RNA: chrB-a RNA
RNA sequence: GGUCUGGGGGUUCUGCGAUCCCCCCACGAGGCGACAUGCCCAAGUAUCGCGUCCCGUUUCUUCUCACGAGGGCGCACUAUUAUG
Number, nucleotide and partner (000 for none) at each position: 001g000002g000003u000004c000005u026006g025007g024008g023009g022010g021011u000012u000013c000014u000015g000016c000017g000018a000019u000020c000021c010022c009023c008024c007025c006026a005027c000028g000029a000030g000031g000032c000033g000034a000035c000036a000037u000038g000039c000040c000041c000042a000043a000044g000045u000046a000047u000048c000049g075050c074051g073052u072053c071054c070055c000056g000057u000058u000059u000060c000061u000062u000063c000064u000065c000066a000067c000068g000069a000070g054071g053072g052073c051074g050075c049076a000077c000078u000079a000080u000081u000082a000083u000084g000